The record is a 74-nucleotide RNA sequence from Pachycephala philippinensis, which matches "mir-205 microRNA precursor family" in Rfam.
Gene Ontology terms of the family: miRNA-mediated post-transcriptional gene silencing and RISC complex.
The organism belongs to Pachycephala, within Eukaryota.
A search with the family's covariance model found it, with a score of 60 bits.
On this family, see Lim et al., Science 2003: "Vertebrate microRNA genes".
[Rfam]
RNA sequence: UCCUGGUGUCCUUCAUUCCUCUGGAAUCUGUCGAUGCCAAACCCGGAUUUCAGUGAAGUGAAGCCCCUCAGAGA
Numbered sequence: 001u002c003c004u005g006g007u008g009u010c011c012u013u014c015a016u017u018c019c020u021c022u023g024g025a026a027u028c029u030g031u032c033g034a035u036g037c038c039a040a041a042c043c044c045g046g047a048u049u050u051c052a053g054u055g056a057a058g059u060g061a062a063g064c065c066c067c068u069c070a071g072a073g074a
Base pairs, nucleotide, nucleotide: 011063012062013061014060015059016058019055021053023051024050025049026048028046029045030044